The record is a 123-nucleotide sequence from Macrococcus sp. DPC7161, which matches "Ribosomal protein L20 leader" in Rfam. From the family's description: This family is a putative r-protein leader autoregulatory structure found in B. subtilis and other low-GC Gram-positive bacteria. It is located in the 5' untranslated regions of mRNAs encoding initiation factor 3 followed by ribosomal proteins L35 and L20 (infC-rpmI-rplT). The family's RNA type in Rfam is cis-regulatory leader.
RNA sequence: AUAAACAAGUAGAAGCAAUCCCGCUUCUCACCCUGAGAACGCAAAAGGCAGUGAAAGGGUUAAAUAACAGUUGUAUUAGUUAUUUAUGAGAGCGGGUCUAUAGACUCGCUCUUUUUGUUUGUU
Dot-bracket structure: ..........((((((......)))))).(((......((((.....)).)).....)))..............................((((((((....)))))))).............
NCBI's taxonomy places the organism under Bacteria, Bacillati, Bacillota, Bacilli, Macrococcus. It scores 68 bits against the family's covariance model. Its family is annotated with regulation of gene expression in the Gene Ontology.